[Rfam]
RNA sequence: ACGGGCACGGACGCCCGUGGUUCCAAACAGAAGCGAUGUUUACAAACAAAAACCAAAAAUAGCAAAGUUUUGUUUGUAAACUCGUAGAUAUAAUUUUGACACGGAUGUCAAAAUUAUAUCGUGC
Numbered sequence: 001a002c003g004g005g006c007a008c009g010g011a012c013g014c015c016c017g018u019g020g021u022u023c024c025a026a027a028c029a030g031a032a033g034c035g036a037u038g039u040u041u042a043c044a045a046a047c048a049a050a051a052a053c054c055a056a057a058a059a060u061a062g063c064a065a066a067g068u069u070u071u072g073u074u075u076g077u078a079a080a081c082u083c084g085u086a087g088a089u090a091u092a093a094u095u096u097u098g099a100c101a102c103g104g105a106u107g108u109c110a111a112a113a114u115u116a117u118a119u120c121g122u123g124c
Base pairs, nucleotide, nucleotide: 001018002017003016004015005014006013034084035083036082038081039080040079041078042077043076044075045074046073047072048071049070050069051068087120088119089118090117091116092115093114094113095112096111097110098109099108100107
Dot-bracket structure: ((((((......))))))...............(((.((((((((((((((................)))))))))))))))))..((((((((((((((......))))))))))))))....

Overview:
Shown here is a 124-nucleotide RNA from Treponema phagedenis, a member of the family "TD-2 RNA". Its Rfam clan is "TD (Treponema denticola) motifs". Rfam 15.1 lists 310 matches to the family in 11 species. NCBI's taxonomy places the organism under Bacteria, Spirochaetota, Spirochaetia, Treponemataceae, Treponema. By type it is a small RNA.